[Rfam]
RNA sequence: CUGGUAACACUUCCAUGCACCGUUGCUACAGUUCUUACCAGAGAAGUUUCUUUGAACAUGUGGAACACCGGAAACCAUGAGGAGGAGGUUCAGCAUUCACUCCUGAGCAUGCAGCCAGCUCUUGGGGGUGCUUCUCUGCAGCUUGCCUUUUACACUGACCAUCACUCUUCUCUUCCUAUGGGAGAAUGAAAGGGAAAGGAUGCCAUUUGAAGGGU
Numbered sequence: 001c002u003g004g005u006a007a008c009a010c011u012u013c014c015a016u017g018c019a020c021c022g023u024u025g026c027u028a029c030a031g032u033u034c035u036u037a038c039c040a041g042a043g044a045a046g047u048u049u050c051u052u053u054g055a056a057c058a059u060g061u062g063g064a065a066c067a068c069c070g071g072a073a074a075c076c077a078u079g080a081g082g083a084g085g086a087g088g089u090u091c092a093g094c095a096u097u098c099a100c101u102c103c104u105g106a107g108c109a110u111g112c113a114g115c116c117a118g119c120u121c122u123u124g125g126g127g128g129u130g131c132u133u134c135u136c137u138g139c140a141g142c143u144u145g146c147c148u149u150u151u152a153c154a155c156u157g158a159c160c161a162u163c164a165c166u167c168u169u170c171u172c173u174u175c176c177u178a179u180g181g182g183a184g185a186a187u188g189a190a191a192g193g194g195a196a197a198g199g200a201u202g203c204c205a206u207u208u209g210a211a212g213g214g215u
Base pairs, nucleotide, nucleotide: 001041002040003039004038005037006035009032010031011030015027017026018025019024048064049063050062053060074215075214076213078211093203094202095201096200097199098198101195102194103193104192107165118153124147125146127142129140130139131138166189167188168186169185170184171183172182173181174180